A member of the RNA family "Small nucleolar RNA SNORD66" from Scleropages formosus, 76 nucleotides long. Rfam's curators write: snoRNA HBII-142 is part of the C/D family of snoRNAs. It is the human orthologue of the mouse MBII-142 snoRNA and is predicted to guide 2'O-ribose methylation of small 18S rRNA at residue C1272. NCBI's taxonomy places the organism under Eukaryota, Opisthokonta, Metazoa, Gnathostomata, Scleropages. It is annotated as a C/D-box small nucleolar RNA. Rfam links the family to the GO terms nucleolus and RNA processing. On this family, see Huttenhofer et al., EMBO J 2001: "RNomics: an experimental approach that identifies 201 candidates for novel, small, non-messenger RNAs in mouse".

RNA sequence: CUCCUGUGAUGACCUCCAUUCAGUGCCACGUGUCUGGGCCACUGACUUGCAAUGAUGGCAGUGAGGAUCUGAGGAG
Numbered sequence: 001c002u003c004c005u006g007u008g009a010u011g012a013c014c015u016c017c018a019u020u021c022a023g024u025g026c027c028a029c030g031u032g033u034c035u036g037g038g039c040c041a042c043u044g045a046c047u048u049g050c051a052a053u054g055a056u057g058g059c060a061g062u063g064a065g066g067a068u069c070u071g072a073g074g075a076g
Stems, first nucleotide, its partner, number of pairs: 001076004